[Rfam]
RNA sequence: AUAGAACAAGGGAAUGAAGUUCUCCCUAAGUAGUUAGAUACUUAAACCGCUUAUAAAAGCUGAUGACUUCUGCGAUAUU
Numbered sequence: 001a002u003a004g005a006a007c008a009a010g011g012g013a014a015u016g017a018a019g020u021u022c023u024c025c026c027u028a029a030g031u032a033g034u035u036a037g038a039u040a041c042u043u044a045a046a047c048c049g050c051u052u053a054u055a056a057a058a059g060c061u062g063a064u065g066a067c068u069u070c071u072g073c074g075a076u077a078u079u
Stems, first nucleotide, its partner, number of pairs: 010026004016070006049060004